[Rfam]
RNA sequence: UCAAUGGAUGGCUAGGGUUCCGAGCGCCCCUCGACGAGUAUUCGACGAGAUCGCGUUGUCUGGUCCGAGAGCUAUCGACCCGGCCUGGCGUCAUGCGCAGGCAAGGUUACACGGCGGGAGAAAAGCCCGGGAGGA
Numbered sequence: 001u002c003a004a005u006g007g008a009u010g011g012c013u014a015g016g017g018u019u020c021c022g023a024g025c026g027c028c029c030c031u032c033g034a035c036g037a038g039u040a041u042u043c044g045a046c047g048a049g050a051u052c053g054c055g056u057u058g059u060c061u062g063g064u065c066c067g068a069g070a071g072c073u074a075u076c077g078a079c080c081c082g083g084c085c086u087g088g089c090g091u092c093a094u095g096c097g098c099a100g101g102c103a104a105g106g107u108u109a110c111a112c113g114g115c116g117g118g119a120g121a122a123a124a125g126c127c128c129g130g131g132a133g134g135a
Stems, first nucleotide, its partner, number of pairs: 007076006015066002020063002022060001023057005077108004083102005110130001112133001116128003

This 135-nucleotide sequence from Halotalea alkalilenta belongs to the Rfam family "Guanidine-I riboswitch aptamer". Taxonomically the source falls in Halotalea (Bacteria, Pseudomonadati, Pseudomonadota, Halomonadaceae).